The record is an 82-nucleotide RNA sequence from Larimichthys crocea, which matches "mir-16 microRNA precursor family" in Rfam.
The family's consensus secondary structure was predicted with PFOLD.
Lineage of the source: Eukaryota > Opisthokonta > Euteleostomi > Osteoglossocephalai > Larimichthys.
[Rfam]
RNA sequence: GCCUUACUGUAGCAGCACGUAAAUAUUGGAGUUAAGACUCUAGCUGAAGCCUCCAGUAUUGAUCGUGCUGCUGAAGCAAAGC
Dot-bracket structure: ((..(.(..(((((((((.(.((((((((.......................)))))))).)..))))))))..)).)..))
Numbered sequence: 001g002c003c004u005u006a007c008u009g010u011a012g013c014a015g016c017a018c019g020u021a022a023a024u025a026u027u028g029g030a031g032u033u034a035a036g037a038c039u040c041u042a043g044c045u046g047a048a049g050c051c052u053c054c055a056g057u058a059u060u061g062a063u064c065g066u067g068c069u070g071c072u073g074a075a076g077c078a079a080a081g082c
Stems, first nucleotide, its partner, number of pairs: 001082002005078001007076001010075001011072008020062001022060008